[Rfam]
RNA sequence: AGAAUGUGGAGACCAGAACCCACACUAAAAAACGGGGAGUAUUCCGAAAAGCCUUAUGAGUAGGAGUAAA
Numbered sequence: 001a002g003a004a005u006g007u008g009g010a011g012a013c014c015a016g017a018a019c020c021c022a023c024a025c026u027a028a029a030a031a032a033c034g035g036g037g038a039g040u041a042u043u044c045c046g047a048a049a050a051g052c053c054u055u056a057u058g059a060g061u062a063g064g065a066g067u068a069a070a
Base pairs, nucleotide, nucleotide: 006023007022008021009020036053037052043064044063